[Rfam]
SAM-I/IV (S-adenosyl methionine) riboswitch aptamer: a 111-nucleotide RNA from Sphingomonas desiccabilis. The family's consensus secondary structure is taken from published work. Gene Ontology terms of the family: S-adenosylmethionine metabolic process and regulation of gene expression.
RNA sequence: CGCCAGCAUCGAGAGUCGGGGCGACCCCGACACCAACCUGCUCCCGAGCAAGGUGGUGCCUUCGCGCUUCGCGGGAAGGGAUGUGGCCGGUCGGCAAACCACGGGACCCAA
Numbered sequence: 001c002g003c004c005a006g007c008a009u010c011g012a013g014a015g016u017c018g019g020g021g022c023g024a025c026c027c028c029g030a031c032a033c034c035a036a037c038c039u040g041c042u043c044c045c046g047a048g049c050a051a052g053g054u055g056g057u058g059c060c061u062u063c064g065c066g067c068u069u070c071g072c073g074g075g076a077a078g079g080g081a082u083g084u085g086g087c088c089g090g091u092c093g094g095c096a097a098a099c100c101a102c103g104g105g106a107c108c109c110a111a
Base pairs, nucleotide, nucleotide: 006084007083008082009081010080015031016030017029018028019027020026032057033056034055037053038052039051040049041048042047086095087094088093
Dot-bracket structure: .....(((((....((((((.....))))))(((..((((((....))).))).)))......................))))).(((....)))................